[Rfam]
The record is a 107-nucleotide sequence from Jeotgalibaca sp. PTS2502, which matches "THF (Tetrahydrofolate) riboswitch aptamer" in Rfam.
A reference for the family is Ames et al. (2010), "A eubacterial riboswitch class that senses the coenzyme tetrahydrofolate", Chem Biol.
Gene Ontology term of the family: tetrahydrofolate metabolic process.
About the family: Tetrahydrofolate (THF) riboswitch was first reported for Ames et al. as an RNA motif in 5' untranslated (5'-UTR)regions of folate transport and biosynthesis genes in Firmicutes genomes.
The family has 101 seed sequences and 747 matches in Rfam 15.1.
RNA sequence: AUCAGAGUAGAGAAUGAAGCGUUAAGUGUCGGAUGGAUGGGAUGUUGCCUCCGAACGAAAAGUAAAGGGAGACCUUUAUUUGCGGUUUUGUUCUUGCAUUCGCUGCA
Numbered sequence: 001a002u003c004a005g006a007g008u009a010g011a012g013a014a015u016g017a018a019g020c021g022u023u024a025a026g027u028g029u030c031g032g033a034u035g036g037a038u039g040g041g042a043u044g045u046u047g048c049c050u051c052c053g054a055a056c057g058a059a060a061a062g063u064a065a066a067g068g069g070a071g072a073c074c075u076u077u078a079u080u081u082g083c084g085g086u087u088u089u090g091u092u093c094u095u096g097c098a099u100u101c102g103c104u105g106c107a
Base pairs, nucleotide, nucleotide: 003105004104005103010095011094012093013092014091015090016089017088018087019086020084021083022082026056027055029054030053031052032051033050035049036048040101041100042099043098044097060081061080062079063078064077065076066075067074